[Rfam]
Nucleotides: 162
Base pairs, nucleotide, nucleotide: 003160004159005158006156007155008154009153016028017027018026030142031141032132033131034082035081036080037079085108086107112128113127114126115125116124134145135144136143
Number, partner (000 for none) and nucleotide at each position: 001000c002000a003160u004159c005158g006156c007155u008154u009153c010000a011000g012000g013000g014000c015000g016028g017027g018026g019000u020000g021000u022000a023000a024000u025000u026018c027017c028016c029000c030142a031141c032132c033131g034082g035081u036080g037079g038000u039000a040000u041000u042000u043000u044000a045000a046000a047000u048000a049000c050000u051000c052000u053000c054000u055000a056000u057000u058000c059000a060000a061000g062000a063000u064000g065000a066000u067000g068000a069000u070000u071000u072000a073000a074000u075000c076000a077000g078000c079037c080036c081035a082034c083000g084000a085108g086107c087000c088000g089000a090000u091000c092000a093000g094000c095000a096000u097000g098000u099000g100000c101000u102000g103000a104000u105000c106000a107086g108085c109000a110000g111000a112128u113127u114126u115125g116124g117000u118000a119000a120000a121000a122000a123000g124116c125115c126114a127113a128112a129000g130000c131033c132032g133000a134145c135144g136143g137000u138000a139000u140000a141031g142030u143136c144135c145134g146000g147000a148000u149000g150000a151000a152000a153009g154008a155007a156006g157000a158005c159004g160003a161000g162000a